The family of this 115-nucleotide RNA sequence from Endozoicomonas elysicola is "Manganese Mn2+ riboswitch aptamer (yybP-ykoY)". For this family Rfam cites "Novel small RNA-encoding genes in the intergenic regions of Escherichia coli" (Argaman et al., Curr Biol, 2001).
RNA sequence: UCCCCUCACUCAGGGGAGUAGUCUCUCUGUAUUCAGAGGUUGUCGUCAACAUACUUGAGCCUCAAUGUUCAUGGCGAUAACGGCACAAGCCCAUUCAAUGCAAUGGCUAGUGUUU
Number, nucleotide and partner (000 for none) at each position: 001u000002c000003c000004c000005c000006u000007c000008a000009c000010u000011c000012a000013g000014g000015g000016g000017a000018g000019u000020a000021g000022u000023c000024u000025c000026u037027c036028u035029g000030u000031a000032u000033u000034c000035a028036g027037a026038g000039g081040u080041u079042g078043u077044c076045g075046u074047c073048a072049a000050c000051a000052u000053a000054c000055u000056u071057g070058a069059g068060c067061c000062u000063c000064a000065a000066u000067g060068u059069u058070c057071a056072u048073g047074g046075c045076g044077a043078u042079a041080a040081c039082g114083g113084c112085a111086c110087a000088a108089g107090c106091c105092c000093a000094u000095u000096c000097a000098a000099u000100g000101c000102a000103a000104u000105g091106g090107c089108u088109a000110g086111u085112g084113u083114u082115u000
NCBI's taxonomy places the organism under Bacteria, Gammaproteobacteria, Oceanospirillales, Endozoicomonadaceae, Endozoicomonas. The match comes from Rfam's covariance-model search (58 bits). From the family's description: This RNA was originally discovered in E. coli during a large scale screen and was named SraF. The family was later found to exist upstream of related families of protein genes in many bacteria, including the the yybP and ykoK genes in B. subtilis.